RNA sequence: CUUCAUGUUUUUCCACAGCUUUCUUGAACUGCAUAUACUGAAGCAGCUGUAUAGCCUCUACUGGAGGGGAUUAUGAAGCCUUUUGCGGUUCAAUAAAGCUGUGGGAAGAUAUAGAGA
Numbered sequence: 001c002u003u004c005a006u007g008u009u010u011u012u013c014c015a016c017a018g019c020u021u022u023c024u025u026g027a028a029c030u031g032c033a034u035a036u037a038c039u040g041a042a043g044c045a046g047c048u049g050u051a052u053a054g055c056c057u058c059u060a061c062u063g064g065a066g067g068g069g070a071u072u073a074u075g076a077a078g079c080c081u082u083u084u085g086c087g088g089u090u091c092a093a094u095a096a097a098g099c100u101g102u103g104g105g106a107a108g109a110u111a112u113a114g115a116g117a
Stems, first nucleotide, its partner, number of pairs: 003114001005112003013104003017100006024093004029088005
A member of the RNA family "MIR396 microRNA precursor family" from Olea europaea, 117 nucleotides long. The base pairs follow the family's consensus structure, which was predicted with WAR. Gene Ontology terms of the family: RISC complex and miRNA-mediated post-transcriptional gene silencing. NCBI's taxonomy places the organism under Eukaryota, Tracheophyta, Oleeae, Olea, Olea europaea. The literature on the family includes a 2004 paper in Mol Cell by Jones-Rhoades and Bartel, "Computational identification of plant microRNAs and their targets, including a stress-induced miRNA".